[Rfam]
RNA sequence: GGCUGCUCUGAAGGUAGUGAGUUAUCUGAGUUGAUUGUUCAGUCACUUGCAGAUCAAAUUCCUUGUUCUACUCUUUACCCCCUUCUCACUGCUGCACUUGACUAUUCGAAA
Numbered sequence: 001g002g003c004u005g006c007u008c009u010g011a012a013g014g015u016a017g018u019g020a021g022u023u024a025u026c027u028g029a030g031u032u033g034a035u036u037g038u039u040c041a042g043u044c045a046c047u048u049g050c051a052g053a054u055c056a057a058a059u060u061c062c063u064u065g066u067u068c069u070a071c072u073c074u075u076u077a078c079c080c081c082c083u084u085c086u087c088a089c090u091g092c093u094g095c096a097c098u099u100g101a102c103u104a105u106u107c108g109a110a111a
Stems, first nucleotide, its partner, number of pairs: 001107002004104002007101002010099002014095002016090006042072001045069001
RNA: Y RNA